[Rfam]
RNA: Mammalian CPEB3 ribozyme
Organism: Crocodylus porosus
RNA sequence: ACAAGCUUGAGGCCAUAGCAGAAGCAAUCAUGGCAUGGACUGUCAGAUUCCAACGAAUCUGUAAAUUCUGCU
Numbered sequence: 001a002c003a004a005g006c007u008u009g010a011g012g013c014c015a016u017a018g019c020a021g022a023a024g025c026a027a028u029c030a031u032g033g034c035a036u037g038g039a040c041u042g043u044c045a046g047a048u049u050c051c052a053a054c055g056a057a058u059c060u061g062u063a064a065a066u067u068c069u070g071c072u
Stems, first nucleotide, its partner, number of pairs: 011040001013038002017072007024036001044061007